[Rfam]
RNA sequence: CUUCACCGAACCCAGCCACAGCGGCUCGCCGGUGCGGUCCUUGCCGUACGUGGCGAGCAGGGCCUGCGCCUC
Numbered sequence: 001c002u003u004c005a006c007c008g009a010a011c012c013c014a015g016c017c018a019c020a021g022c023g024g025c026u027c028g029c030c031g032g033u034g035c036g037g038u039c040c041u042u043g044c045c046g047u048a049c050g051u052g053g054c055g056a057g058c059a060g061g062g063c064c065u066g067c068g069c070c071u072c
Stems, first nucleotide, its partner, number of pairs: 014026004032067002035062001040057003044053003
ASpks TB sRNA: a 72-nucleotide RNA from Streptomyces formicae.
Rfam classes the family as an antisense RNA.
The base pairs follow the family's consensus structure, which is taken from published work.
Lineage of the source: Bacteria > Actinomycetota > Actinomycetes > Streptomycetaceae > Streptomyces.
It scores 75 bits against the family's covariance model.